Rfam assigns this 333-nucleotide RNA from uncultured archaeon A07HR67 to the family "Archaeal RNase P". Rfam describes the family as follows. Ribonuclease P (RNase P) is a ubiquitous endoribonuclease, found in archaea, bacteria and eukarya as well as chloroplasts and mitochondria. Its best characterised activity is the generation of mature 5'-ends of tRNAs by cleaving the 5'-leader elements of precursor-tRNAs. Cellular RNase Ps are ribonucleoproteins. The family is grouped with related families in Rfam's "RNaseP clan". The family's RNA type in Rfam is ribozyme.
RNA sequence: GACAGAGGGAGCCCGACUCCCGUGCCGCUGGCAUGAGGAAAGUCCCCCCACCGGCCGGACGGGCGACCGGGCACACGCCCGGAGUCGGAGACGGCUGGCUCUGGAACAGCAACGAGACCCCCCGCCCCGACCGAUGACUCGCGCGAACCGACCCGCGAGGGAAGGGAGUUAACCCGGAGAGGGCACGUGGCGGUACCACGUCACAGACGGGCGGGAACGGAUGGAACGGCGAAUCCUCGCCGGUGCAAGUCCGCGCCACCAGGUAGUCCGGCCACGGCGCGGACGCUCAGCCGAAUGUCGGGACGAACUGAAGGGGGCUUACUCCCCUCAGUC
Numbered sequence: 001g002a003c004a005g006a007g008g009g010a011g012c013c014c015g016a017c018u019c020c021c022g023u024g025c026c027g028c029u030g031g032c033a034u035g036a037g038g039a040a041a042g043u044c045c046c047c048c049c050a051c052c053g054g055c056c057g058g059a060c061g062g063g064c065g066a067c068c069g070g071g072c073a074c075a076c077g078c079c080c081g082g083a084g085u086c087g088g089a090g091a092c093g094g095c096u097g098g099c100u101c102u103g104g105a106a107c108a109g110c111a112a113c114g115a116g117a118c119c120c121c122c123c124g125c126c127c128c129g130a131c132c133g134a135u136g137a138c139u140c141g142c143g144c145g146a147a148c149c150g151a152c153c154c155g156c157g158a159g160g161g162a163a164g165g166g167a168g169u170u171a172a173c174c175c176g177g178a179g180a181g182g183g184c185a186c187g188u189g190g191c192g193g194u195a196c197c198a199c200g201u202c203a204c205a206g207a208c209g210g211g212c213g214g215g216a217a218c219g220g221a222u223g224g225a226a227c228g229g230c231g232a233a234u235c236c237u238c239g240c241c242g243g244u245g246c247a248a249g250u251c252c253g254c255g256c257c258a259c260c261a262g263g264u265a266g267u268c269c270g271g272c273c274a275c276g277g278c279g280c281g282g283a284c285g286c287u288c289a290g291c292c293g294a295a296u297g298u299c300g301g302g303a304c305g306a307a308c309u310g311a312a313g314g315g316g317g318c319u320u321a322c323u324c325c326c327c328u329c330a331g332u333c
Stems, first nucleotide, its partner, number of pairs: 001333003005329005010323002012302006021035005040320003044317005049245004054272006062241005067082005083096005097236002102232001104230001118220002121215007249284009
Dot-bracket structure: (((.(((((((((((((...(((((.....)))))....[[[.[[[[[((((.[[[[[[..((((((((((......)))))(((((....)))))((...(.(.............((.(((((((.................................................................................)))))))...)).........).)..)))))))))))...(((((((((.........]]]]]]...)))))))))............))))))..........]]]]]]]].)).))))).)))